[Rfam]
RNA sequence: UGUGUAAGCGCUAAACCCGUUGUGAAGCGGGGACAGAAAACUACGGGUCUUGUUUGAAGAUAGCCGGGUUGCCACGU
Numbered sequence: 001u002g003u004g005u006a007a008g009c010g011c012u013a014a015a016c017c018c019g020u021u022g023u024g025a026a027g028c029g030g031g032g033a034c035a036g037a038a039a040a041c042u043a044c045g046g047g048u049c050u051u052g053u054u055u056g057a058a059g060a061u062a063g064c065c066g067g068g069u070u071g072c073c074a075c076g077u
Stems, first nucleotide, its partner, number of pairs: 003074002011036002016031006034063001039070004044066003047061003
c-di-GMP-I-GGC riboswitch aptamer: a 77-nucleotide RNA sequence from Methylomonas denitrificans.
Taxonomically the source falls in Methylomonas (Bacteria, Pseudomonadati, Pseudomonadota, Gammaproteobacteria).